[Rfam]
RNA: Plant small nucleolar RNA U3
Organism: Hibiscus syriacus
RNA sequence: GUGACCUUACUUGAACAGAAUCUGUUCUAUAGGCUCGUACCUCUAUAUCUUUGAGUUCUAAGGAGUCAGGAUUUUAAGUCUGGCUGAUGAACCGAGACUGUGUGAUCGGAGCGUUAUUACUGGUCUGGUGUCUCGUCAUUAUGGCCGCCUUUGACCGCAGAGAAUCGUUCCCAGCCAACCUUGCCUGACUGGGGUGGUCAAGCAGUUUUUUGACAGAUU
Numbered sequence: 001g002u003g004a005c006c007u008u009a010c011u012u013g014a015a016c017a018g019a020a021u022c023u024g025u026u027c028u029a030u031a032g033g034c035u036c037g038u039a040c041c042u043c044u045a046u047a048u049c050u051u052u053g054a055g056u057u058c059u060a061a062g063g064a065g066u067c068a069g070g071a072u073u074u075u076a077a078g079u080c081u082g083g084c085u086g087a088u089g090a091a092c093c094g095a096g097a098c099u100g101u102g103u104g105a106u107c108g109g110a111g112c113g114u115u116a117u118u119a120c121u122g123g124u125c126u127g128g129u130g131u132c133u134c135g136u137c138a139u140u141a142u143g144g145c146c147g148c149c150u151u152u153g154a155c156c157g158c159a160g161a162g163a164a165u166c167g168u169u170c171c172c173a174g175c176c177a178a179c180c181u182u183g184c185c186u187g188a189c190u191g192g193g194g195u196g197g198u199c200a201a202g203c204a205g206u207u208u209u210u211u212g213a214c215a216g217a218u219u
Stems, first nucleotide, its partner, number of pairs: 001038002003035001005033003013027006043069002048064006078218005097206005103200006110169004121157005127151002130148002133144004171192004176187002